[Rfam]
RNA: small nucleolar RNA snoR135
Organism: Quercus lobata
RNA sequence: AAAGCAGGGAUUGUGUGUAUCGGCGUUGUGCAACAAUAAGUGCACUGUGUCCGAAAGAGUUCUCUGCAACAUUGAUAUGGGGAAGGUGGGCAGUUGUGUUUCAUCUUUACCGUUGAUAUUUUCAACAAUCAUCUUCCCUACAUCG
Numbered sequence: 001a002a003a004g005c006a007g008g009g010a011u012u013g014u015g016u017g018u019a020u021c022g023g024c025g026u027u028g029u030g031c032a033a034c035a036a037u038a039a040g041u042g043c044a045c046u047g048u049g050u051c052c053g054a055a056a057g058a059g060u061u062c063u064c065u066g067c068a069a070c071a072u073u074g075a076u077a078u079g080g081g082g083a084a085g086g087u088g089g090g091c092a093g094u095u096g097u098g099u100u101u102c103a104u105c106u107u108u109a110c111c112g113u114u115g116a117u118a119u120u121u122u123c124a125a126c127a128a129u130c131a132u133c134u135u136c137c138c139u140a141c142a143u144c145g
Stems, first nucleotide, its partner, number of pairs: 004067007015045006079139011093126004